[Rfam]
RNA sequence: UACAUUUGCCACUUCAAUGAAAUUCAUUGGUACAUUAAAAUUAUUUAAACAAUAUUGGUAUG
Numbered sequence: 001u002a003c004a005u006u007u008g009c010c011a012c013u014u015c016a017a018u019g020a021a022a023u024u025c026a027u028u029g030g031u032a033c034a035u036u037a038a039a040a041u042u043a044u045u046u047a048a049a050c051a052a053u054a055u056u057g058g059u060a061u062g
Stems, first nucleotide, its partner, number of pairs: 014030006
The family of this 62-nucleotide RNA from Tenacibaculum sp. SZ-18 is "S15-Flavobacteria ribosomal protein leader". By type it is a cis-regulatory leader. For this family Rfam cites "Discovery of 20 novel ribosomal leader candidates in bacteria and archaea" (Eckert and Weinberg, BMC Microbiol, 2020). Taxonomically the source falls in Tenacibaculum (Bacteria, Flavobacteriia, Flavobacteriales, Flavobacteriaceae).